RNA sequence: GGCGUCCGGCACGUGAACACCUGAGCGCUUUGGACCUUCGUCCGGCUACCCUGACCGAGUGCGCCUCCAACCGAAGCGCAAAGCCGACAGCCGUCGCACCUCAGGGAGCUCUUUCAUG
Dot-bracket structure: ...........................................................(((((.((.....)).)))))..((.(((....))))).....................
Numbered sequence: 001g002g003c004g005u006c007c008g009g010c011a012c013g014u015g016a017a018c019a020c021c022u023g024a025g026c027g028c029u030u031u032g033g034a035c036c037u038u039c040g041u042c043c044g045g046c047u048a049c050c051c052u053g054a055c056c057g058a059g060u061g062c063g064c065c066u067c068c069a070a071c072c073g074a075a076g077c078g079c080a081a082a083g084c085c086g087a088c089a090g091c092c093g094u095c096g097c098a099c100c101u102c103a104g105g106g107a108g109c110u111c112u113u114u115c116a117u118g
Stems, first nucleotide, its partner, number of pairs: 060080005066074002083097002086095003